Shown here is an 86-nucleotide sequence from Neobacillus cucumis, a member of the family "c-di-GMP-I riboswitch aptamer". GEMM was predicted in a large-scale screen for bacterial structured RNA regulatory elements. Genes associated with GEMM are involved in a diverse array of functions, including chemotaxis regulation, signal transduction, secretion and chitin. Gene Ontology term of the family: cyclic-di-GMP binding. The family's consensus secondary structure is taken from published work.
RNA sequence: CGUACGAAACGGCAAAACCAUUGAAAAAUGGUGACGCAAAACUACAGGGGCUAAGGUUUACUAAACGAUGCUCGCCAGUUACCGAA
Numbered sequence: 001c002g003u004a005c006g007a008a009a010c011g012g013c014a015a016a017a018c019c020a021u022u023g024a025a026a027a028a029u030g031g032u033g034a035c036g037c038a039a040a041a042c043u044a045c046a047g048g049g050g051c052u053a054a055g056g057u058u059u060a061c062u063a064a065a066c067g068a069u070g071c072u073c074g075c076c077a078g079u080u081a082c083c084g085a086a
Base pairs, nucleotide, nucleotide: 012037013036017032018031019030020029021028022027040080041079042078043077047076048075049072050071051070056066057065058064059063